[Rfam]
Shown here is a 172-nucleotide RNA sequence from Danionella cerebrum, a member of the family "U2 spliceosomal RNA".
RNA sequence: AAAGCUGUGAAAGAAAAAAUCUGUUCUUAUCAGUUUAAUAUCUGAUACGUGUCCUAUCUGGACACUAUAUAUUAAAUGGAUUUUUGCAUACAGGAGAUGGAACAGGAGCUUGCUUCGUCCACUCCACGCAUUGACCUGAUAUUGCAGUGCCUUCAGGAACAGUGCAUUGCUC
Dot-bracket structure: ...........................((((((........)))))).((((((.....))))))...........................((((..((....((((....)))).))..))))..((((((.(((((.............)))))..)))))).......
Background:
The organism belongs to Danionella, within Eukaryota. Rfam's curators write: U2 is a small nuclear RNA (snRNA) component of the spliceosome (involved in pre-mRNA splicing). Complementary binding between U2 snRNA (in an area lying towards the 5' end but 3' to hairpin I) and the branchpoint sequence (BPS) of the intron results the bulging out of an unpaired adenosine, on the BPS, which initiates a nucleophilic attack at the intronic 5' splice site, thus starting the first of two transesterification reactions that mediate splicing.